[Rfam]
RNA sequence: GCUGUGAUCAUAUCAUCCUGUCACCUCUGGGGCUUGGGUGGAGGAGGGCAACUACUGUCCCCAAGUCCUGCCCUUCAUGUGGAGAGCUCACCUCCCUUUAGCUUGCAGACUGCAAGGUUGGCAUAGAGUAGUCUGUGCCAACCUGGCAGGCAAAGAUUGAGGGAAGGCUCAGGCUGGCAACAGAGCAGGCAAAACUCAACACUGCAAGCAGAUGGGAGAGAGUGAGCUUGAAUGGAUGGCAGUGACCUCUGGUGGCAUGAAUGUGUGUCACUCCACUUUUU
Numbered sequence: 001g002c003u004g005u006g007a008u009c010a011u012a013u014c015a016u017c018c019u020g021u022c023a024c025c026u027c028u029g030g031g032g033c034u035u036g037g038g039u040g041g042a043g044g045a046g047g048g049c050a051a052c053u054a055c056u057g058u059c060c061c062c063a064a065g066u067c068c069u070g071c072c073c074u075u076c077a078u079g080u081g082g083a084g085a086g087c088u089c090a091c092c093u094c095c096c097u098u099u100a101g102c103u104u105g106c107a108g109a110c111u112g113c114a115a116g117g118u119u120g121g122c123a124u125a126g127a128g129u130a131g132u133c134u135g136u137g138c139c140a141a142c143c144u145g146g147c148a149g150g151c152a153a154a155g156a157u158u159g160a161g162g163g164a165a166g167g168c169u170c171a172g173g174c175u176g177g178c179a180a181c182a183g184a185g186c187a188g189g190c191a192a193a194a195c196u197c198a199a200c201a202c203u204g205c206a207a208g209c210a211g212a213u214g215g216g217a218g219a220g221a222g223u224g225a226g227c228u229u230g231a232a233u234g235g236a237u238g239g240c241a242g243u244g245a246c247c248u249c250u251g252g253u254g255g256c257a258u259g260a261a262u263g264u265g266u267g268u269c270a271c272u273c274c275a276c277u278u279u280u281u
Stems, first nucleotide, its partner, number of pairs: 008030003036278008046269002049267002051264002056257004061252003066245001068242005074236005080230001084229008092218002095216003099212001101209008110149004115144013151155001157199005167190003174183003
The family of this 281-nucleotide sequence from Symbiodinium sp. CCMP2456 is "Metazoan signal recognition particle RNA". Its Rfam clan is "SRP clan". A search with the family's covariance model found it, with a score of 116 bits. The source organism's lineage runs through Eukaryota, Alveolata, Dinophyceae, Suessiales and Symbiodinium. Rfam describes the family as follows. The signal recognition particle (SRP) is a universally conserved ribonucleoprotein. Rfam classes the family as a non-coding RNA gene.